A member of the RNA family "SAH (S-adenosyl-L-homocysteine) riboswitch aptamer" from Trinickia soli, 123 nucleotides long. On this family, see Wang et al., Mol Cell 2008: "Riboswitches that sense S-adenosylhomocysteine and activate genes involved in coenzyme recycling". The organism belongs to Trinickia, within Bacteria.
[Rfam]
RNA sequence: GUUUCCGAGGAGCGUUGCGACGGACCACUUCCGCCAGGCUCGGGAACUUCAAUCGGACGGUAAGCCUUCGCGUUCCAAGCGAAACGCCGGCGGACCGGCUCCAUCGAACGGCGCUCACGUCAA
Numbered sequence: 001g002u003u004u005c006c007g008a009g010g011a012g013c014g015u016u017g018c019g020a021c022g023g024a025c026c027a028c029u030u031c032c033g034c035c036a037g038g039c040u041c042g043g044g045a046a047c048u049u050c051a052a053u054c055g056g057a058c059g060g061u062a063a064g065c066c067u068u069c070g071c072g073u074u075c076c077a078a079g080c081g082a083a084a085c086g087c088c089g090g091c092g093g094a095c096c097g098g099c100u101c102c103a104u105c106g107a108a109c110g111g112c113g114c115u116c117a118c119g120u121c122a123a
Base pairs, nucleotide, nucleotide: 002046003045004044005043006042007041008040021033022032023031024030
Dot-bracket structure: .(((((((............((((.....))))......))))))).............................................................................